[Rfam]
RNA sequence: UAUAUUUGCCGCUUGGUAGAAAACCUAUCAAUACAUAAAAAUCAUUUUAACAAUAUUGGCAUG
Numbered sequence: 001u002a003u004a005u006u007u008g009c010c011g012c013u014u015g016g017u018a019g020a021a022a023a024c025c026u027a028u029c030a031a032u033a034c035a036u037a038a039a040a041a042u043c044a045u046u047u048u049a050a051c052a053a054u055a056u057u058g059g060c061a062u063g
Stems, first nucleotide, its partner, number of pairs: 014030006
Overview:
S15-Flavobacteria ribosomal protein leader: a 63-nucleotide RNA from Marixanthomonas spongiae.